[Rfam]
RNA sequence: UCCGCAUCGCCUGAAACGAUGCUCUUACCUUGUCAUUAGAAUAGGUGAGCAAAGUUUCAGGUGUCUGCGUGG
Dot-bracket structure: ..((((.(((((((.((..(.(((...(((............))).))).)..)).)))))))..))))...
Numbered sequence: 001u002c003c004g005c006a007u008c009g010c011c012u013g014a015a016a017c018g019a020u021g022c023u024c025u026u027a028c029c030u031u032g033u034c035a036u037u038a039g040a041a042u043a044g045g046u047g048a049g050c051a052a053a054g055u056u057u058c059a060g061g062u063g064u065c066u067g068c069g070u071g072g
Stems, first nucleotide, its partner, number of pairs: 003069004008063007016055002020051001022049003028045003